[Rfam]
RNA sequence: UCCUCAGCGCGUGCUUCAUCACGAUGUUGCGGAAGCUCACGCCCUUCAGCCGCGCGGUGCGGAUGUACUGCGCGGUCAUCACCUCGGUCAUCGAGGCCCGCGUCAUCCGCGCGAUGUAGCCCAUGCCGUAGAGGGCGAUGGUGACGACCGGCAGCGUGAAGUUCUGGAACGUCACGUUC
Numbered sequence: 001u002c003c004u005c006a007g008c009g010c011g012u013g014c015u016u017c018a019u020c021a022c023g024a025u026g027u028u029g030c031g032g033a034a035g036c037u038c039a040c041g042c043c044c045u046u047c048a049g050c051c052g053c054g055c056g057g058u059g060c061g062g063a064u065g066u067a068c069u070g071c072g073c074g075g076u077c078a079u080c081a082c083c084u085c086g087g088u089c090a091u092c093g094a095g096g097c098c099c100g101c102g103u104c105a106u107c108c109g110c111g112c113g114a115u116g117u118a119g120c121c122c123a124u125g126c127c128g129u130a131g132a133g134g135g136c137g138a139u140g141g142u143g144a145c146g147a148c149c150g151g152c153a154g155c156g157u158g159a160a161g162u163u164c165u166g167g168a169a170c171g172u173c174a175c176g177u178u179c
Stems, first nucleotide, its partner, number of pairs: 004141003008137003012133001014131002016128001020125002028123002031120001038113001040111003046105001048103001051100002054097001055075001057073006082096005146178002150173003154165001156163001
Dot-bracket structure: ...(((.(((.(.(((...((......((.(......(.(((...(.(..((.((.((((((.....)))))).)......(((((.....)))))).))..).)...))).)......).))))..).)).).))).)))....((..(((.(.(......).).....)))...)).
This 179-nucleotide sequence from Rhodovulum sp. 12E13 belongs to the Rfam family "Ruegeria cis52 sRNA". On this family, see Rivers et al., Front Microbiol 2016: "Experimental Identification of Small Non-Coding RNAs in the Model Marine Bacterium Ruegeria pomeroyi DSS-3". The source organism's lineage runs through Bacteria, Pseudomonadota, Alphaproteobacteria, Rhodobacterales and Rhodovulum.